[Rfam]
RNA: Actino-pnp RNA
RNA sequence: CAUGGUCUCCGGUAGUGGUUUUCAGAUAAUUAGAUUUAAUAAAUCUAUCUGAGAACUUCGAUCGUAGAUUCAUU
Numbered sequence: 001c002a003u004g005g006u007c008u009c010c011g012g013u014a015g016u017g018g019u020u021u022u023c024a025g026a027u028a029a030u031u032a033g034a035u036u037u038a039a040u041a042a043a044u045c046u047a048u049c050u051g052a053g054a055a056c057u058u059c060g061a062u063c064g065u066a067g068a069u070u071c072a073u074u
Stems, first nucleotide, its partner, number of pairs: 002073003005069003010064004017057012